Record summary: The family of this 53-nucleotide RNA sequence is "Mu-gpT-DE RNA".
[Rfam]
RNA sequence: CCCUGACAGUUGCCUAACGCAGCUGACACUAGCCACGACAGGAGAUUCUCAUG
Numbered sequence: 001c002c003c004u005g006a007c008a009g010u011u012g013c014c015u016a017a018c019g020c021a022g023c024u025g026a027c028a029c030u031a032g033c034c035a036c037g038a039c040a041g042g043a044g045a046u047u048c049u050c051a052u053g
Base pairs, nucleotide, nucleotide: 002042003041004040005039007025008024009023010022011021